[Rfam]
RNA sequence: CCGGGUGCUGACGCACCCGGCACUGAGCUUUCGUCCCUCCGGGACU
Numbered sequence: 001c002c003g004g005g006u007g008c009u010g011a012c013g014c015a016c017c018c019g020g021c022a023c024u025g026a027g028c029u030u031u032c033g034u035c036c037c038u039c040c041g042g043g044a045c046u
Base pairs, nucleotide, nucleotide: 001020002019003018004017005016006015007014008013033045034044035043036042037041

Acido-Lenti-1 RNA: a 46-nucleotide RNA from Rubripirellula obstinata. By type it is a small RNA. The source organism's lineage runs through Bacteria, Planctomycetia, Pirellulales, Pirellulaceae and Rubripirellula. The family's consensus secondary structure is taken from published work.